[Rfam]
RNA: Small Cajal body specific RNA 3
RNA sequence: GCUGGAAGCUGCAGUUUUCUGUGCGUGCAGUGCAAGUGACUGUUCGCAGCAGCAGCCUUCCUAUAGUAAUACUCUGGAGAUCUCUGUCUGGCUGUGAAUAGAUUUGUUUAGCCUGAUCGUUCCUCUCCAUACAGU
Numbered sequence: 001g002c003u004g005g006a007a008g009c010u011g012c013a014g015u016u017u018u019c020u021g022u023g024c025g026u027g028c029a030g031u032g033c034a035a036g037u038g039a040c041u042g043u044u045c046g047c048a049g050c051a052g053c054a055g056c057c058u059u060c061c062u063a064u065a066g067u068a069a070u071a072c073u074c075u076g077g078a079g080a081u082c083u084c085u086g087u088c089u090g091g092c093u094g095u096g097a098a099u100a101g102a103u104u105u106g107u108u109u110a111g112c113c114u115g116a117u118c119g120u121u122c123c124u125c126u127c128c129a130u131a132c133a134g135u
Stems, first nucleotide, its partner, number of pairs: 004061003008056005022048004027043002076128005084119001086117003090113005096107001